The family of this 126-nucleotide RNA sequence from Trichechus manatus is "U4atac minor spliceosomal RNA".
RNA sequence: ACCAUCCUUUUCUUGGGGUUGCGCUACUGUCCAAUGAACGUGUAGUGAGGACAGUACUGCUAACACCUGUACAACACACUCGCAUCAAAUAAAGUUUUGCUUUAUUUUGGUGCAAUUUUUGGAAAC
Number, nucleotide and partner (000 for none) at each position: 001a000002c000003c000004a000005u000006c018007c017008u016009u015010u000011u000012c000013u000014u000015g009016g008017g007018g006019u000020u000021g060022c059023g058024c000025u000026a055027c054028u053029g052030u051031c050032c049033a000034a000035u000036g000037a000038a046039c045040g000041u000042g000043u000044a000045g039046u038047g000048a000049g032050g031051a030052c029053a028054g027055u026056a000057c000058u023059g022060c021061u000062a000063a000064c000065a000066c000067c000068u000069g000070u000071a000072c000073a000074a000075c000076a000077c000078a000079c000080u000081c000082g113083c112084a111085u110086c109087a108088a000089a000090u104091a103092a102093a101094g100095u099096u000097u000098u000099g095100c094101u093102u092103u091104a090105u000106u000107u000108u087109g086110g085111u084112g083113c082114a000115a000116u000117u000118u000119u000120u000121g000122g000123a000124a000125a000126c000
By type it is a spliceosomal small nuclear RNA.
Clan: U4 clan.
The base pairs follow the family's consensus structure, which is taken from published work.
Gene Ontology terms of the family: pre-mRNA 5'-splice site binding, spliceosomal tri-snRNP complex assembly and U4atac snRNP.
A search with the family's covariance model found it, with a score of 122 bits.
The literature on the family includes a 2005 paper in RNA by Lorkovic et al., "Evolutionary conservation of minor U12-type spliceosome between plants and humans".
Lineage of the source: Eukaryota > Opisthokonta > Teleostomi > Sarcopterygii > Trichechus manatus.